[Rfam]
RNA sequence: GCUGAGGAAUGAUGACAAGAAAAGGCCGAAUUGCAGUGCCUGCAGCAGGCAGUUUGCUCUCCUUGCAGGCACCGUGACAAAGCUCUCCUGAAGCGAAACAUCCAGUCUGACCUCAGC
Numbered sequence: 001g002c003u004g005a006g007g008a009a010u011g012a013u014g015a016c017a018a019g020a021a022a023a024g025g026c027c028g029a030a031u032u033g034c035a036g037u038g039c040c041u042g043c044a045g046c047a048g049g050c051a052g053u054u055u056g057c058u059c060u061c062c063u064u065g066c067a068g069g070c071a072c073c074g075u076g077a078c079a080a081a082g083c084u085c086u087c088c089u090g091a092a093g094c095g096a097a098a099c100a101u102c103c104a105g106u107c108u109g110a111c112c113u114c115a116g117c
Stems, first nucleotide, its partner, number of pairs: 001117007014107003025034002036102001037100002041096001043093001046090004052072002055069001059065001074085001076083001
RNA: Small nucleolar RNA SNORD89
Organism: Bucco capensis